This 71-nucleotide RNA from Hermetia illucens belongs to the Rfam family "mir-10 microRNA precursor family".
On this family, see Ambros, Cell 2001: "microRNAs: tiny regulators with great potential".
The match comes from Rfam's covariance-model search (49 bits).
Taxonomically the source falls in Hermetia (Eukaryota, Pancrustacea, Hexapoda, Panorpida).
[Rfam]
RNA sequence: UUACAGUAACCCGUAGAUCCGAACUUGUGCUGAGCUAUCGUUACAAGAACGGUUUUAUGGGCAUCUGUCAA
Numbered sequence: 001u002u003a004c005a006g007u008a009a010c011c012c013g014u015a016g017a018u019c020c021g022a023a024c025u026u027g028u029g030c031u032g033a034g035c036u037a038u039c040g041u042u043a044c045a046a047g048a049a050c051g052g053u054u055u056u057a058u059g060g061g062c063a064u065c066u067g068u069c070a071a
Stems, first nucleotide, its partner, number of pairs: 003068004010061003015056003019052003024047006